RNA sequence: GGCGAUAAACGGCGCGUGGAAUAAACGUUGUGGACCCGGGGGCAGUGCCCGGCGCCUCCACCAGUUUCCCCGGAUAUCCGGGAUCAUGGGGGCGAAACAGGCUCGACACGCGUAGUAAAGACCCGCUCUUUGCUCGGCAUUGUACCGCCGUUAUCGGGCUAACACACAAGUGCCAACGAUAAUGAGGCGCUCGCUGUCGCUGCAUAA
Numbered sequence: 001g002g003c004g005a006u007a008a009a010c011g012g013c014g015c016g017u018g019g020a021a022u023a024a025a026c027g028u029u030g031u032g033g034a035c036c037c038g039g040g041g042g043c044a045g046u047g048c049c050c051g052g053c054g055c056c057u058c059c060a061c062c063a064g065u066u067u068c069c070c071c072g073g074a075u076a077u078c079c080g081g082g083a084u085c086a087u088g089g090g091g092g093c094g095a096a097a098c099a100g101g102c103u104c105g106a107c108a109c110g111c112g113u114a115g116u117a118a119a120g121a122c123c124c125g126c127u128c129u130u131u132g133c134u135c136g137g138c139a140u141u142g143u144a145c146c147g148c149c150g151u152u153a154u155c156g157g158g159c160u161a162a163c164a165c166a167c168a169a170g171u172g173c174c175a176a177c178g179a180u181a182a183u184g185a186g187g188c189g190c191u192c193g194c195u196g197u198c199g200c201u202g203c204a205u206a207a
Base pairs, nucleotide, nucleotide: 001134002133003132004131005130014124016122017121026112027111028110030109031108032107036052037051038050039049040048053094054093055092056091057090058089059088135150136149137148138147
Shown here is a 207-nucleotide RNA from Rhodopila globiformis, a member of the family "permuted transfer-messenger RNA". Pairs were carried over by alignment from the consensus structure, which is taken from published work. By type it is a non-coding RNA gene. The match comes from Rfam's covariance-model search (144 bits).